[Rfam]
RNA: SAM (S-adenosyl methionine) riboswitch aptamer
Organism: Streptomyces sp. SID10115
RNA sequence: GGUCACGAGUUCCAGUGUCAAGCCCCGGCUCGCUGGACGGCACCCCGCUCCGUCGCGGGUGCCCCGGGUGACGACCCGCCCCGUGCGACGUGCACGGGGAACGGCGGAUC
Numbered sequence: 001g002g003u004c005a006c007g008a009g010u011u012c013c014a015g016u017g018u019c020a021a022g023c024c025c026c027g028g029c030u031c032g033c034u035g036g037a038c039g040g041c042a043c044c045c046c047g048c049u050c051c052g053u054c055g056c057g058g059g060u061g062c063c064c065c066g067g068g069u070g071a072c073g074a075c076c077c078g079c080c081c082c083g084u085g086c087g088a089c090g091u092g093c094a095c096g097g098g099g100a101a102c103g104g105c106g107g108a109u110c
Stems, first nucleotide, its partner, number of pairs: 001076004009038001011037006021030002039063003044059005079099009